[Rfam]
RNA sequence: UGGUUCGUUCCAUCUUUUUAAUCAAAGGAAUCACAGUUGAGGGCCAAGACAACCUCGUACUCUCUCUCUCUCUCUCUCUACUGUGUUCCUUUGGUUAACCAGAUGUACUGAAUCA
Numbered sequence: 001u002g003g004u005u006c007g008u009u010c011c012a013u014c015u016u017u018u019u020a021a022u023c024a025a026a027g028g029a030a031u032c033a034c035a036g037u038u039g040a041g042g043g044c045c046a047a048g049a050c051a052a053c054c055u056c057g058u059a060c061u062c063u064c065u066c067u068c069u070c071u072c073u074c075u076c077u078c079u080a081c082u083g084u085g086u087u088c089c090u091u092u093g094g095u096u097a098a099c100c101a102g103a104u105g106u107a108c109u110g111a112a113u114c115a
Stems, first nucleotide, its partner, number of pairs: 001115007011105003018098013032085006039078003
RNA: MIR1509 microRNA precursor family